RNA sequence: AAUAAACGCAGUUUUGCACUGUUUAUGUCCAACGUUUGAUUGUUUGUCUUAUUUAAAUUUUUUUUUUAUGAUUAGCAUUUUUAUUGUUAUUAGAUGAUAAAAUAUGAAUAAUACUGUAUGUGUAACUAUUUUUUAAAAGUUUAUUUUCAUAAAAUUUUCAAAUAAGAUGGACGGUUAAACGUUGGACACGGAUACCAUGGCUACACCUACU
Numbered sequence: 001a002a003u004a005a006a007c008g009c010a011g012u013u014u015u016g017c018a019c020u021g022u023u024u025a026u027g028u029c030c031a032a033c034g035u036u037u038g039a040u041u042g043u044u045u046g047u048c049u050u051a052u053u054u055a056a057a058u059u060u061u062u063u064u065u066u067u068a069u070g071a072u073u074a075g076c077a078u079u080u081u082u083a084u085u086g087u088u089a090u091u092a093g094a095u096g097a098u099a100a101a102a103u104a105u106g107a108a109u110a111a112u113a114c115u116g117u118a119u120g121u122g123u124a125a126c127u128a129u130u131u132u133u134u135a136a137a138a139g140u141u142u143a144u145u146u147u148c149a150u151a152a153a154a155u156u157u158u159c160a161a162a163u164a165a166g167a168u169g170g171a172c173g174g175u176u177a178a179a180c181g182u183u184g185g186a187c188a189c190g191g192a193u194a195c196c197a198u199g200g201c202u203a204c205a206c207c208u209a210c211u
Base pairs, nucleotide, nucleotide: 028186029185030184031183032182033181035179036178037177038176039175040174041173042172043171044170045169046168047167048166049165050164051163052162053161054160
RNA: MIR812 microRNA precursor family